narK RNA: a 70-nucleotide sequence from Pseudomonas fluorescens.
The family's RNA type in Rfam is cis-regulatory element.
Taxonomically the source falls in Pseudomonas fluorescens (Bacteria, Pseudomonadati, Pseudomonadota, Pseudomonas).
RNA sequence: GGCACAGGACUUGCCAUGCAUUCAUCACAGGUAGCCAACGGCGGUUGCCCUUCCACGACAAAGACGUCGC
Numbered sequence: 001g002g003c004a005c006a007g008g009a010c011u012u013g014c015c016a017u018g019c020a021u022u023c024a025u026c027a028c029a030g031g032u033a034g035c036c037a038a039c040g041g042c043g044g045u046u047g048c049c050c051u052u053c054c055a056c057g058a059c060a061a062a063g064a065c066g067u068c069g070c
Stems, first nucleotide, its partner, number of pairs: 030049007